Annotation:
This 511-nucleotide RNA from Streptomyces sp. GS7 belongs to the Rfam family "Saccharopolyspora sRNA 350". Pairs were carried over by alignment from the consensus structure, which was predicted with RNAfold.
RNA sequence: CGGUAGCUGAACUCCCAGUCGCCGUCCGGGCUGGUGAGCGGUUCGUCGCCGAGGUGGUCGCCGCCGGCCAGCGCUUCGAGGACGGUCGCGUCGCCGUACUUGCCGGUGCCGAUCCGGUCGACCCGGCCGUGGGUGAUGAGCACCACCCUGUCGUGGGGCGUACCGGCCUCGGCGAUCAGCUCACCGGGCGCGUACUCGUGCUGAGUAAACCUUUCGCCGAGUGCCGCGAGCACCUCGGUGUCCGUGAACUCCCACAGUGAGGGCAGUUCGCGCAGCUCGUCCGGGAUGAUGGAGACCUGGGUGCCGAUGAUGUCGAAGUCGAUCCGCCCGUCGCCGACGGUGUACGCCAGCCGGCGGUUGACGCGGUACGUACCACCCGAGACCUGCACCCAGGGCAGCAGCCGCAGCAGCCAGCGGGAGGUGAUCCCCUGCAUCUGCGGCGCGGUCUUGGUGGUCGUCGCCAAGUUCCGUGCGGCUGCGGUACUCAGACUGGAAUGCGGGGUCUCUUCGG
Numbered sequence: 001c002g003g004u005a006g007c008u009g010a011a012c013u014c015c016c017a018g019u020c021g022c023c024g025u026c027c028g029g030g031c032u033g034g035u036g037a038g039c040g041g042u043u044c045g046u047c048g049c050c051g052a053g054g055u056g057g058u059c060g061c062c063g064c065c066g067g068c069c070a071g072c073g074c075u076u077c078g079a080g081g082a083c084g085g086u087c088g089c090g091u092c093g094c095c096g097u098a099c100u101u102g103c104c105g106g107u108g109c110c111g112a113u114c115c116g117g118u119c120g121a122c123c124c125g126g127c128c129g130u131g132g133g134u135g136a137u138g139a140g141c142a143c144c145a146c147c148c149u150g151u152c153g154u155g156g157g158g159c160g161u162a163c164c165g166g167c168c169u170c171g172g173c174g175a176u177c178a179g180c181u182c183a184c185c186g187g188g189c190g191c192g193u194a195c196u197c198g199u200g201c202u203g204a205g206u207a208a209a210c211c212u213u214u215c216g217c218c219g220a221g222u223g224c225c226g227c228g229a230g231c232a233c234c235u236c237g238g239u240g241u242c243c244g245u246g247a248a249c250u251c252c253c254a255c256a257g258u259g260a261g262g263g264c265a266g267u268u269c270g271c272g273c274a275g276c277u278c279g280u281c282c283g284g285g286a287u288g289a290u291g292g293a294g295a296c297c298u299g300g301g302u303g304c305c306g307a308u309g310a311u312g313u314c315g316a317a318g319u320c321g322a323u324c325c326g327c328c329c330g331u332c333g334c335c336g337a338c339g340g341u342g343u344a345c346g347c348c349a350g351c352c353g354g355c356g357g358u359u360g361a362c363g364c365g366g367u368a369c370g371u372a373c374c375a376c377c378c379g380a381g382a383c384c385u386g387c388a389c390c391c392a393g394g395g396c397a398g399c400a401g402c403c404g405c406a407g408c409a410g411c412c413a414g415c416g417g418g419a420g421g422u423g424a425u426c427c428c429c430u431g432c433a434u435c436u437g438c439g440g441c442g443c444g445g446u447c448u449u450g451g452u453g454g455u456c457g458u459c460g461c462c463a464a465g466u467u468c469c470g471u472g473c474g475g476c477u478g479c480g481g482u483a484c485u486c487a488g489a490c491u492g493g494a495a496u497g498c499g500g501g502g503u504c505u506c507u508u509c510g511g
Stems, first nucleotide, its partner, number of pairs: 002390003006387002009384001012381002018324001019322003023318001025316002034311002037308001039306001045305001047303004052298001054233002058229004063224002065111004077102004082097005117222002123216001126213001129210002134203002138199001140197001149192002153189002157185002161178001166173002235295002240290003245285001249283001253279001256277003262269001329342004351379001353377002356374002361371003391431005397425001399423002403418001405416001407415001437476002440473001442471004447465006477510002480505002484502003488498001

Overview:
The organism belongs to Streptomyces, within Bacteria. The family's RNA type in Rfam is antisense RNA. It scores 124 bits against the family's covariance model.